U7 small nuclear RNA: a 53-nucleotide sequence from Salmo trutta. Rfam's curators write: Animal histone pre-mRNAs are spliced by a different mechanism than nuclear pre-mRNAs and self-splicing introns. This processing involves the U7 snRNP, which contains only one RNA species: U7. Taxonomically the source falls in Salmo (Eukaryota, Actinopteri, Clupeocephala, Protacanthopterygii).

RNA sequence: AAAUGUGCUAUUUUAGUAUUUCUCCAGUAGGUUUCCUCAUAGAGAAAGCCCCC
Numbered sequence: 001a002a003a004u005g006u007g008c009u010a011u012u013u014u015a016g017u018a019u020u021u022c023u024c025c026a027g028u029a030g031g032u033u034u035c036c037u038c039a040u041a042g043a044g045a046a047a048g049c050c051c052c053c
Base pairs, nucleotide, nucleotide: 030050031049032048033047034046036044037043038042